This 120-nucleotide RNA sequence from Streptomyces fructofermentans belongs to the Rfam family "Streptomyces-metH RNA". It is annotated as a small RNA. The base pairs follow the family's consensus structure, which is taken from published work. A search with the family's covariance model found it, with a score of 101 bits.

RNA sequence: CCCGUCCGUCCCGUGGACGUCCCUGACCCUUCGUCCCGCCGCGGGCUACCCUGACGGCGUGCGCCUUCCACGGGAAGCGCAAAGCCGACAGCCGUCGCACUCCAGGGAGUAUCUUCCAUG
Numbered sequence: 001c002c003c004g005u006c007c008g009u010c011c012c013g014u015g016g017a018c019g020u021c022c023c024u025g026a027c028c029c030u031u032c033g034u035c036c037c038g039c040c041g042c043g044g045g046c047u048a049c050c051c052u053g054a055c056g057g058c059g060u061g062c063g064c065c066u067u068c069c070a071c072g073g074g075a076a077g078c079g080c081a082a083a084g085c086c087g088a089c090a091g092c093c094g095u096c097g098c099a100c101u102c103c104a105g106g107g108a109g110u111a112u113c114u115u116c117c118a119u120g
Base pairs, nucleotide, nucleotide: 060081061080062079063078065077066076067075068074084098085097087096088095089094